[Rfam]
RNA sequence: AUGUGACAUGCGGGUUUCCCUUUGUCAUCCUAUGCCUGGAGAUCAUGAUAAGGCAGGGAAAGCAAAGGGAUGCUCAGCUGUCACCUCU
Numbered sequence: 001a002u003g004u005g006a007c008a009u010g011c012g013g014g015u016u017u018c019c020c021u022u023u024g025u026c027a028u029c030c031u032a033u034g035c036c037u038g039g040a041g042a043u044c045a046u047g048a049u050a051a052g053g054c055a056g057g058g059a060a061a062g063c064a065a066a067g068g069g070a071u072g073c074u075c076a077g078c079u080g081u082c083a084c085c086u087c088u
Stems, first nucleotide, its partner, number of pairs: 017070006024063002028059004034054004
The family of this 88-nucleotide sequence from Salmo trutta is "mir-204 microRNA precursor family". Its family is annotated with RISC complex and miRNA-mediated post-transcriptional gene silencing in the Gene Ontology. On this family, see Gu et al., FEBS Lett 2007: "Identification and characterization of microRNAs from the bovine adipose tissue and mammary gland". A search with the family's covariance model found it, with a score of 94 bits.